RNA sequence: GAGGCCGAGAGGCGCUGCAACGGACCCGUGGUCCGCCACGCUCGGCCUGGUCGAAUCGCAGCAAGGGCGCCUCCCAGCA
Numbered sequence: 001g002a003g004g005c006c007g008a009g010a011g012g013c014g015c016u017g018c019a020a021c022g023g024a025c026c027c028g029u030g031g032u033c034c035g036c037c038a039c040g041c042u043c044g045g046c047c048u049g050g051u052c053g054a055a056u057c058g059c060a061g062c063a064a065g066g067g068c069g070c071c072u073c074c075c076a077g078c079a
Stems, first nucleotide, its partner, number of pairs: 002048007021035006
Dot-bracket structure: .(((((((............((((((...))))))......)))))))...............................